[Rfam]
RNA: FMN riboswitch aptamer (RFN element)
RNA sequence: UAAGACCUUCGGGGCAGGGUGAAAUUCCCUACCGGCGGUAUGGCACAGCGUAUAAAGCUGGGUUGAGCCCGCGAGUCUGCCAUUGAUUGCUUCUUAAUUAAUGCUGGACAGAUUCGGUGAGAAGCCGAAGCCGACGGUAUAGUCCGGAUGGGAGAAGGUUAUA
Numbered sequence: 001u002a003a004g005a006c007c008u009u010c011g012g013g014g015c016a017g018g019g020u021g022a023a024a025u026u027c028c029c030u031a032c033c034g035g036c037g038g039u040a041u042g043g044c045a046c047a048g049c050g051u052a053u054a055a056a057g058c059u060g061g062g063u064u065g066a067g068c069c070c071g072c073g074a075g076u077c078u079g080c081c082a083u084u085g086a087u088u089g090c091u092u093c094u095u096a097a098u099u100a101a102u103g104c105u106g107g108a109c110a111g112a113u114u115c116g117g118u119g120a121g122a123a124g125c126c127g128a129a130g131c132c133g134a135c136g137g138u139a140u141a142g143u144c145c146g147g148a149u150g151g152g153a154g155a156a157g158g159u160u161a162u163a
Stems, first nucleotide, its partner, number of pairs: 004160007017029003031143002033133002035072004067131002075109005113129005135146003
Dot-bracket structure: ...(((((((......(((.......))).[[((((((............................[[))))..(((((.........................)))))...(((((.......)))))]])).(((....]]))).......)))))))...